This 136-nucleotide sequence from Vibrio xiamenensis belongs to the Rfam family "Histidine operon leader". Taxonomically the source falls in Vibrio (Bacteria, Pseudomonadati, Pseudomonadota, Vibrionaceae). The family's RNA type in Rfam is cis-regulatory leader. On this family, see Kolter and Yanofsky, Annu Rev Genet 1982: "Attenuation in amino acid biosynthetic operons". Rfam describes the family as follows. At least 6 amino acid operons are known to be regulated by attenuation. In each a leader sequence of 150-200 bp is found upstream of the first gene in the operon.
RNA sequence: UCAUCAUCACCAUCACCCAAUCUAGUCUUUCGGGCGAUGUACGCGUACCCGGGAGGCAGGAAUCUCCCGGUGGUUGAAAUCAGAGUUAAAUACAGAUUCAAACCCUUGGGAGACAAACUUCCAAGGGUUUUUUAGU
Numbered sequence: 001u002c003a004u005c006a007u008c009a010c011c012a013u014c015a016c017c018c019a020a021u022c023u024a025g026u027c028u029u030u031c032g033g034g035c036g037a038u039g040u041a042c043g044c045g046u047a048c049c050c051g052g053g054a055g056g057c058a059g060g061a062a063u064c065u066c067c068c069g070g071u072g073g074u075u076g077a078a079a080u081c082a083g084a085g086u087u088a089a090a091u092a093c094a095g096a097u098u099c100a101a102a103c104c105c106u107u108g109g110g111a112g113a114c115a116a117a118c119u120u121c122c123a124a125g126g127g128u129u130u131u132u133u134a135g136u
Stems, first nucleotide, its partner, number of pairs: 009046002011039004017034002048070002051068006100130013